[Rfam]
A member of the RNA family "Flavo-1 RNA" from Oceanihabitans sp. IOP_32, 76 nucleotides long. The match comes from Rfam's covariance-model search (52 bits). The source organism's lineage runs through Bacteria, Pseudomonadati, Bacteroidota, Flavobacteriaceae and Oceanihabitans. The family's consensus secondary structure is taken from published work. Rfam classes the family as a small RNA.
RNA sequence: GUGCGUUAGGGAUUGCAGUGAAAAUCCUUUUUGUAAGGCACGAGCAAAAAGAUUGUAGCGUAAAGCCCGACUUUUU
Numbered sequence: 001g002u003g004c005g006u007u008a009g010g011g012a013u014u015g016c017a018g019u020g021a022a023a024a025u026c027c028u029u030u031u032u033g034u035a036a037g038g039c040a041c042g043a044g045c046a047a048a049a050a051g052a053u054u055g056u057a058g059c060g061u062a063a064a065g066c067c068c069g070a071c072u073u074u075u076u
Base pairs, nucleotide, nucleotide: 009068010067011066013064014063018059019058023054024053025052026051029049030048031047032046033045034044